[Rfam]
RNA sequence: GGCGAUAAACGAGCUUCGCAAUAAACCUAUCGGACCCGGGGGCGGUACCCGGCGCCUCCACCCGAGGCCAGCGCAAAGGCUGGGCUGGGGUGGGGGCGAAAUAGGAUUGACGAGGGCGUAAAGGGGGUUUUUUCGCUCGGCAUGAUACCGCCGUUAUCGGGUCAAACCUAUAGUUGCCAACGACAACUAUGCUCCGGUGGCCGUCGCCGCGUAA
Number, nucleotide and partner (000 for none) at each position: 001g137002g136003c135004g134005a133006u000007a000008a000009a000010c000011g000012a000013g000014c127015u126016u125017c124018g000019c000020a000021a000022u000023a000024a000025a000026c116027c115028u114029a000030u113031c112032g111033g000034a000035c000036c052037c051038g050039g049040g048041g000042g000043c000044g000045g000046u000047a000048c040049c039050c038051g037052g036053c098054g097055c096056c095057u094058c093059c092060a091061c090062c000063c000064g000065a000066g000067g000068c000069c000070a000071g000072c000073g000074c000075a000076a000077a000078g000079g000080c000081u000082g000083g000084g000085c000086u000087g000088g000089g000090g061091u060092g059093g058094g057095g056096g055097c054098g053099a000100a000101a000102u000103a000104g000105g000106a000107u000108u000109g000110a000111c032112g031113a030114g028115g027116g026117c000118g000119u000120a000121a000122a000123g000124g017125g016126g015127g014128u000129u000130u000131u000132u000133u005134c004135g003136c002137u001138c153139g152140g151141c150142a000143u000144g000145a000146u000147a000148c000149c000150g141151c140152c139153g138154u000155u000156a000157u000158c000159g000160g000161g000162u000163c000164a000165a000166a000167c000168c000169u000170a000171u000172a000173g000174u000175u000176g000177c000178c000179a000180a000181c000182g000183a000184c000185a000186a000187c000188u000189a000190u000191g000192c000193u000194c000195c000196g000197g000198u000199g000200g000201c000202c000203g000204u000205c000206g000207c000208c000209g000210c000211g000212u000213a000214a000